A member of the RNA family "Bacteroidete tryptophan peptide leader RNA" from Pseudozobellia thermophila, 116 nucleotides long. It scores 52 bits against the family's covariance model. Rfam links the family to the GO terms S-adenosylmethionine metabolic process and regulation of gene expression.
RNA sequence: UGAUUUCUAUAUUUGGUCCAAUGAACGGAAUUAAUACAAAUACUUGGUGGUGGAACAACUCUCGACAGAUAUCGUGAGCUGAGCAUCAUUGUAGUAAAACUAUAAAAAGGCUUGUC
Numbered sequence: 001u002g003a004u005u006u007c008u009a010u011a012u013u014u015g016g017u018c019c020a021a022u023g024a025a026c027g028g029a030a031u032u033a034a035u036a037c038a039a040a041u042a043c044u045u046g047g048u049g050g051u052g053g054a055a056c057a058a059c060u061c062u063c064g065a066c067a068g069a070u071a072u073c074g075u076g077a078g079c080u081g082a083g084c085a086u087c088a089u090u091g092u093a094g095u096a097a098a099a100c101u102a103u104a105a106a107a108a109g110g111c112u113u114g115u116c
Base pairs, nucleotide, nucleotide: 036103038101041096042095043094044093046090047089049087050086051085052084056081057080059078060077061076064073065072